A member of the RNA family "Mammalian CPEB3 ribozyme" from Alligator mississippiensis, 80 nucleotides long. A search with the family's covariance model found it, with a score of 44 bits.
[Rfam]
RNA sequence: AGAGGUCGCAAGUUUAAGGCCAUAGAAGAAGCGCUCACAGCACGGCCACAUCAGAUUCCAGCAAAUCUGUGAAUUCUGCU
Numbered sequence: 001a002g003a004g005g006u007c008g009c010a011a012g013u014u015u016a017a018g019g020c021c022a023u024a025g026a027a028g029a030a031g032c033g034c035u036c037a038c039a040g041c042a043c044g045g046c047c048a049c050a051u052c053a054g055a056u057u058c059c060a061g062c063a064a065a066u067c068u069g070u071g072a073a074u075u076c077u078g079c080u
Stems, first nucleotide, its partner, number of pairs: 013048001018047004024080002027077004031043001033041001052069006